[Rfam]
The family of this 85-nucleotide RNA sequence from Candidatus Magnetomorum sp. HK-1 is "c-di-GMP-I riboswitch aptamer". Its family is annotated with cyclic-di-GMP binding in the Gene Ontology.
RNA sequence: GGUAGAUAAUAGCAAACUUGUUGAAAGGCAAGGACGCAAAGCUUCCGGCCUAAGUUCGAAAGAAUAGGGUAGCGGGGCCACCAAA
Numbered sequence: 001g002g003u004a005g006a007u008a009a010u011a012g013c014a015a016a017c018u019u020g021u022u023g024a025a026a027g028g029c030a031a032g033g034a035c036g037c038a039a040a041g042c043u044u045c046c047g048g049c050c051u052a053a054g055u056u057c058g059a060a061a062g063a064a065u066a067g068g069g070u071a072g073c074g075g076g077g078c079c080a081c082c083a084a085a
Stems, first nucleotide, its partner, number of pairs: 012037002017032006041078003045075003048070003055064003